[Rfam]
RNA sequence: AUUGGGUCAAUGAUGCUAACAAAUUUUGCAUUAUCUAUUUGAAAUUUUCCAUAUUGGAAUUUGAAGAUAACAAAAUCUGCAUUAUCUAUAUGCAAU
Numbered sequence: 001a002u003u004g005g006g007u008c009a010a011u012g013a014u015g016c017u018a019a020c021a022a023a024u025u026u027u028g029c030a031u032u033a034u035c036u037a038u039u040u041g042a043a044a045u046u047u048u049c050c051a052u053a054u055u056g057g058a059a060u061u062u063g064a065a066g067a068u069a070a071c072a073a074a075a076u077c078u079g080c081a082u083u084a085u086c087u088a089u090a091u092g093c094a095a096u
Stems, first nucleotide, its partner, number of pairs: 001096004006091002

A member of the RNA family "Small nucleolar RNA snoR27" from Ziziphus jujuba, 96 nucleotides long. The base pairs follow the family's consensus structure, which was predicted with WAR. Its Rfam clan is "snR68 clan". For this family Rfam cites "Multiple snoRNA gene clusters from Arabidopsis" (Brown et al., RNA, 2001).